This 130-nucleotide sequence from Caloramator sp. E03 belongs to the Rfam family "Ribosomal protein L10 leader".
The base pairs follow the family's consensus structure, which was predicted with CMfinder.
By type it is a cis-regulatory leader.
This family is a putative r-protein leader autoregulatory structure found in B. subtilis and other low-GC Gram-positive bacteria.
Gene Ontology term of the family: regulation of gene expression.
RNA sequence: UAUAUAAUCGAAAGCAUACUGUAGACAGUAGGUGCCUCAAGGCGUAACGGGAUUCCAACCUACCGAGGUUUUAGAUAGUUUUAUCGAAAAGACCUUUCUGUGUCUACAGGAGGUCUUUUGUUAUGCGUUG
Dot-bracket structure: ...........................(((((((((....)))..............))))))...........................((((.((((((....))))))))))...............
Numbered sequence: 001u002a003u004a005u006a007a008u009c010g011a012a013a014g015c016a017u018a019c020u021g022u023a024g025a026c027a028g029u030a031g032g033u034g035c036c037u038c039a040a041g042g043c044g045u046a047a048c049g050g051g052a053u054u055c056c057a058a059c060c061u062a063c064c065g066a067g068g069u070u071u072u073a074g075a076u077a078g079u080u081u082u083a084u085c086g087a088a089a090a091g092a093c094c095u096u097u098c099u100g101u102g103u104c105u106a107c108a109g110g111a112g113g114u115c116u117u118u119u120g121u122u123a124u125g126c127g128u129u130g
Stems, first nucleotide, its partner, number of pairs: 028063006034043003091115004096111006

NCBI's taxonomy places the organism under Bacteria, Bacillota, Eubacteriales, Clostridiaceae, Caloramator.